[Rfam]
RNA sequence: GCGUAACGAGUGGUUCUCCUCCCAUUUUUCGCUCGUUGCGUGUUCCCCUCUGGACGCAUUAGCGUUCACAAUUCGCCGGGCUCUUAGCCCGGCUCUU
Number, nucleotide and partner (000 for none) at each position: 001g041002c040003g039004u038005a037006a000007c035008g034009a033010g032011u031012g030013g029014u000015u000016c000017u000018c000019c000020u000021c000022c000023c000024a000025u000026u000027u000028u000029u013030c012031g011032c010033u009034c008035g007036u000037u005038g004039c003040g002041u001042g000043u000044u000045c000046c000047c000048c000049u000050c000051u068052g067053g066054a065055c064056g063057c062058a000059u000060u000061a000062g057063c056064g055065u054066u053067c052068a051069c000070a000071a000072u000073u000074c000075g000076c092077c091078g090079g089080g088081c087082u000083c000084u000085u000086a000087g081088c080089c079090c078091g077092g076093c000094u000095c000096u000097u000
The family of this 97-nucleotide sequence from Phyllobacterium sp. YR620 is "Alphaproteobacterial ar15".
NCBI's taxonomy places the organism under Bacteria, Pseudomonadati, Hyphomicrobiales, Phyllobacteriaceae, Phyllobacterium.
It scores 54 bits against the family's covariance model.
By type it is a small RNA.